Source information: Shown here is a 35-nucleotide RNA sequence from Flavobacterium sp. AG291, a member of the family "DUF805b RNA". The base pairs follow the family's consensus structure, which is taken from published work.
RNA sequence: UCAGGGGAAAUCGAAAACCUGUAACAGAGUAGAUA
Numbered sequence: 001u002c003a004g005g006g007g008a009a010a011u012c013g014a015a016a017a018c019c020u021g022u023a024a025c026a027g028a029g030u031a032g033a034u035a
Stems, first nucleotide, its partner, number of pairs: 002021004010034003

Notes: It scores 36 bits against the family's covariance model. It is annotated as a cis-regulatory element.